Record summary
This 77-nucleotide sequence belongs to the Rfam family "freshwater-2 RNA". The base pairs follow the family's consensus structure, which is taken from published work. By type it is a cis-regulatory element.
RNA sequence: CCAAGAGUUUACUCUUGGACUUAUGGGGAAUACCAACCCCGUAGACCUAGAACGUCAAAAAAGGGAGAAAACAAAUG
Numbered sequence: 001c002c003a004a005g006a007g008u009u010u011a012c013u014c015u016u017g018g019a020c021u022u023a024u025g026g027g028g029a030a031u032a033c034c035a036a037c038c039c040c041g042u043a044g045a046c047c048u049a050g051a052a053c054g055u056c057a058a059a060a061a062a063g064g065g066a067g068a069a070a071a072c073a074a075a076u077g
Stems, first nucleotide, its partner, number of pairs: 001018006022043007044056003